[Rfam]
RNA sequence: UGAUGACAAGGGCAAACUGCGUGAAAGCGCAGGACGCAAAGCUUCCGGUCUAAGGGAACCAUGUUCCUAGGAUAGCGGGGCCGCCAAG
Numbered sequence: 001u002g003a004u005g006a007c008a009a010g011g012g013c014a015a016a017c018u019g020c021g022u023g024a025a026a027g028c029g030c031a032g033g034a035c036g037c038a039a040a041g042c043u044u045c046c047g048g049u050c051u052a053a054g055g056g057a058a059c060c061a062u063g064u065u066c067c068u069a070g071g072a073u074a075g076c077g078g079g080g081c082c083g084c085c086a087a088g
Stems, first nucleotide, its partner, number of pairs: 012037002017032006041081003045078003048073003055067004
Rfam assigns this 88-nucleotide sequence from Oceanimonas sp. GK1 to the family "c-di-GMP-I riboswitch aptamer". Taxonomically the source falls in Oceanimonas (Bacteria, Pseudomonadota, Gammaproteobacteria, Aeromonadales). Pairs were carried over by alignment from the consensus structure, which is taken from published work.